[Rfam]
RNA sequence: AAGAGUUCCGAGCCAAUAAAAACUAAAAAAAUUGACUCAAGAACAAA
Numbered sequence: 001a002a003g004a005g006u007u008c009c010g011a012g013c014c015a016a017u018a019a020a021a022a023c024u025a026a027a028a029a030a031a032u033u034g035a036c037u038c039a040a041g042a043a044c045a046a047a
Stems, first nucleotide, its partner, number of pairs: 007041001010038003014034004
Record summary: This 47-nucleotide RNA from Nyssa sinensis belongs to the Rfam family "Plastid-rpl16 group II-D1 intron". The match comes from Rfam's covariance-model search (62 bits). Rfam's curators write: Plastid-rpl16 is a non-coding RNA (ncRNA) recognised in plastids. It was recognised in and intronic region of a ribosome rpl16 gene. The organism belongs to Nyssa, within Eukaryota. Pairs were carried over by alignment from the consensus structure, which was predicted with LocARNA.